RNA sequence: GAUCAUGCGGGUGAGAAACCCGCACGCCGAAUGUCCAAGGUUUCCUGCGCAAUGCUAAUCAGCGCAGGGUGAGUCGGCCCCUAAGGCGAGGUCGAAAGGCGUAGUCGAUGGGAAACAGGCAAAAUAUUCCUGUACCUCUUGUAACUGCGAUGGGGGGACGGAGAAGGCUAGACCAAGCCGGGCGUUGGUUGUCCCGGUUUAAGCGUGUAGGGAGUGUUCCAAAGGCAAAUCCGGGAACACAAUCCUGAGGCGUGAUGACGUAAUAAGUGGUUAAUGCCAUGCUUCCAGGAAAAGCCUCUAAGCUUCAGGUUAUGAGAGACCGUACCCGAAACCGACACAGGUGGACAGGGUGAGAAUCCCAAGGCGCU
Numbered sequence: 001g002a003u004c005a006u007g008c009g010g011g012u013g014a015g016a017a018a019c020c021c022g023c024a025c026g027c028c029g030a031a032u033g034u035c036c037a038a039g040g041u042u043u044c045c046u047g048c049g050c051a052a053u054g055c056u057a058a059u060c061a062g063c064g065c066a067g068g069g070u071g072a073g074u075c076g077g078c079c080c081c082u083a084a085g086g087c088g089a090g091g092u093c094g095a096a097a098g099g100c101g102u103a104g105u106c107g108a109u110g111g112g113a114a115a116c117a118g119g120c121a122a123a124a125u126a127u128u129c130c131u132g133u134a135c136c137u138c139u140u141g142u143a144a145c146u147g148c149g150a151u152g153g154g155g156g157g158a159c160g161g162a163g164a165a166g167g168c169u170a171g172a173c174c175a176a177g178c179c180g181g182g183c184g185u186u187g188g189u190u191g192u193c194c195c196g197g198u199u200u201a202a203g204c205g206u207g208u209a210g211g212g213a214g215u216g217u218u219c220c221a222a223a224g225g226c227a228a229a230u231c232c233g234g235g236a237a238c239a240c241a242a243u244c245c246u247g248a249g250g251c252g253u254g255a256u257g258a259c260g261u262a263a264u265a266a267g268u269g270g271u272u273a274a275u276g277c278c279a280u281g282c283u284u285c286c287a288g289g290a291a292a293a294g295c296c297u298c299u300a301a302g303c304u305u306c307a308g309g310u311u312a313u314g315a316g317a318g319a320c321c322g323u324a325c326c327c328g329a330a331a332c333c334g335a336c337a338c339a340g341g342u343g344g345a346c347a348g349g350g351u352g353a354g355a356a357u358c359c360c361a362a363g364g365c366g367c368u
Stems, first nucleotide, its partner, number of pairs: 006024006025366004033346004039326002044068006053061002075322003080111002085106003089102001091100003115133005136318011147303002152298004160285004166278003171272005177198006199258002203253004210246003214240007224232002332341002348360003

This 368-nucleotide part of an RNA from Candidatus Kentrum sp. G belongs to the Rfam family "Bacterial large subunit ribosomal RNA".
The family's consensus secondary structure is taken from published work.
The match comes from Rfam's covariance-model search (2845 bits).